[Rfam]
RNA sequence: CUCUUAUCCAGAGAGGUGGAGGGACUGGCCCGAUGAAGCCCGGCAACCGUUCGAAUUGAUGCGGAUUUCCCGCGAAAAUUUGAAUUGGUGCCAAUUCCUGCAGGGUAUUCCUGAAAGAUAAGAG
Number, nucleotide and partner (000 for none) at each position: 001c124002u123003c122004u121005u120006a119007u118008c117009c000010a000011g000012a000013g041014a000015g040016g039017u038018g000019g000020a000021g031022g030023g029024a000025c100026u000027g098028g097029c023030c022031c021032g000033a000034u000035g000036a000037a000038g017039c016040c015041c013042g092043g091044c090045a089046a000047c088048c087049g000050u083051u082052c000053g000054a000055a000056u000057u000058g000059a000060u000061g000062c000063g000064g000065a000066u000067u000068u000069c000070c000071c000072g000073c000074g000075a000076a000077a000078a000079u000080u000081u000082g051083a050084a000085u000086u000087g048088g047089u045090g044091c043092c042093a000094a000095u000096u116097c028098c027099u000100g025101c113102a112103g111104g110105g109106u000107a000108u000109u105110c104111c103112u102113g101114a000115a000116a096117g008118a007119u006120a005121a004122g003123a002124g001
This 124-nucleotide RNA sequence from a Syntrophomonadaceae bacterium belongs to the Rfam family "SAM riboswitch aptamer (S box leader)".
Clan: SAM clan.
Pairs were carried over by alignment from the consensus structure, which is taken from published work.